[Rfam]
RNA: Small nucleolar RNA R160
RNA sequence: AGCAAAAUGAUGAGUCUAUCAUAUCUGAACAUCAUGUAGAAUCCUUAUCAGAUUGGUCUUCAAAGUUCUCUGAUUGCU
Numbered sequence: 001a002g003c004a005a006a007a008u009g010a011u012g013a014g015u016c017u018a019u020c021a022u023a024u025c026u027g028a029a030c031a032u033c034a035u036g037u038a039g040a041a042u043c044c045u046u047a048u049c050a051g052a053u054u055g056g057u058c059u060u061c062a063a064a065g066u067u068c069u070c071u072g073a074u075u076g077c078u
Base pairs, nucleotide, nucleotide: 001078002077003076004075005074